Shown here is a 204-nucleotide RNA from Sodalis ligni, a member of the family "GlmZ RNA activator of glmS mRNA". The match comes from Rfam's covariance-model search (70 bits). From the family's description: This RNA was discovered in E. coli during a large scale screen. By type it is a small RNA. The base pairs follow the family's consensus structure, which is taken from published work.

[Rfam]
RNA sequence: CCAGUUGCUCAUUCACCUCGAUAUGCCGCCGCUGCUCUCCAAGAGCAGAGAUUGCUACAUAACUACCGAAUGACGCCAAAGAACGGUGCCUAUCGUCCAACAUACCGAUAAUUGUCUUACGACUUUAUCAAACAUCGGGCGACACGUUGAGUGAGGCACCCCCUAUUCUGAAAAAAACACUUGCCGUAAGGCGGGUGUUUUUUU
Numbered sequence: 001c002c003a004g005u006u007g008c009u010c011a012u013u014c015a016c017c018u019c020g021a022u023a024u025g026c027c028g029c030c031g032c033u034g035c036u037c038u039c040c041a042a043g044a045g046c047a048g049a050g051a052u053u054g055c056u057a058c059a060u061a062a063c064u065a066c067c068g069a070a071u072g073a074c075g076c077c078a079a080a081g082a083a084c085g086g087u088g089c090c091u092a093u094c095g096u097c098c099a100a101c102a103u104a105c106c107g108a109u110a111a112u113u114g115u116c117u118u119a120c121g122a123c124u125u126u127a128u129c130a131a132a133c134a135u136c137g138g139g140c141g142a143c144a145c146g147u148u149g150a151g152u153g154a155g156g157c158a159c160c161c162c163c164u165a166u167u168c169u170g171a172a173a174a175a176a177a178c179a180c181u182u183g184c185c186g187u188a189a190g191g192c193g194g195g196u197g198u199u200u201u202u203u204u
Stems, first nucleotide, its partner, number of pairs: 001081001007076002009073004016068001018061001020058001022057001027054001028052001085160007095140004107129004176199010